[Rfam]
RNA sequence: UUGCGCAAGUCGUGCUUUGGUAGGCAAUGUUCGCAAUCCUCUGUCGGAAUCGCAGGUUUAUUCUUUUCCCAACUUCGAGGCCCGGACAUCUGGUCCACCCGGAGCGCCCAACCAGGCACUCCGGCGCCGCGCGAUCUUACCGGGUCGCGCGGCACCCGGGCUCGCAGCGCCCAACCAGGCCUGCGGGAAGACGGCGACAGCCUCGCCGGCAAUGGACGAAACCGAAACGGGAGGAAAGGUCAUGGCCUUUCCU
Number, nucleotide and partner (000 for none) at each position: 001u012002u000003g010004c009005g000006c000007a000008a000009g004010u003011c000012g001013u000014g000015c000016u000017u000018u000019g000020g000021u000022a000023g000024g000025c000026a000027a000028u000029g000030u000031u000032c000033g000034c000035a000036a000037u000038c000039c000040u000041c000042u000043g057044u056045c055046g000047g000048a000049a000050u000051c000052g000053c000054a000055g045056g044057u043058u000059u000060a000061u000062u000063c000064u000065u000066u000067u000068c000069c000070c000071a000072a000073c000074u000075u191076c190077g000078a000079g000080g161081c160082c159083c158084g096085g095086a094087c093088a000089u000090c000091u000092g000093g087094u086095c085096c084097a000098c000099c124100c123101g122102g121103a120104g000105c000106g117107c116108c115109c000110a000111a000112c000113c000114a000115g108116g107117c106118a000119c000120u103121c102122c101123g100124g099125c000126g153127c152128c151129g000130c000131g000132c000133g146134a145135u144136c143137u142138u000139a000140c000141c000142g137143g136144g135145u134146c133147g000148c000149g000150c000151g128152g127153c126154a000155c000156c000157c000158g083159g082160g081161c080162u000163c185164g184165c183166a000167g181168c000169g180170c179171c178172c000173a000174a000175c000176c000177a000178g171179g170180c169181c167182u000183g165184c164185g163186g000187g000188a000189a000190g076191a075192c208193g207194g206195c205196g204197a203198c000199a000200g000201c000202c000203u197204c196205g195206c194207c193208g192209g000210c000211a000212a000213u000214g000215g000216a000217c000218g000219a000220a000221a000222c000223c000224g000225a000226a000227a000228c000229g000230g000231g000232a253233g252234g251235a250236a000237a248238g247239g246240u245241c000242a000243u000244g000245g240246c239247c238248u237249u000250u235251c234252c233253u232
Shown here is a 253-nucleotide sequence from Azotobacter chroococcum, a member of the family "Pseudomonas sRNA P24".
It is annotated as a non-coding RNA gene.